[Rfam]
RNA sequence: ACCAAUUGACAAGCAGGAAAGGCACCCUGCACUCCCAUACGGGAACCUGAUAUGAUGGAUACGCCGCCCAUCCAAUGAAU
Numbered sequence: 001a002c003c004a005a006u007u008g009a010c011a012a013g014c015a016g017g018a019a020a021g022g023c024a025c026c027c028u029g030c031a032c033u034c035c036c037a038u039a040c041g042g043g044a045a046c047c048u049g050a051u052a053u054g055a056u057g058g059a060u061a062c063g064c065c066g067c068c069c070a071u072c073c074a075a076u077g078a079a080u
Stems, first nucleotide, its partner, number of pairs: 001080001005076004013030005021065003032049001033044004054072005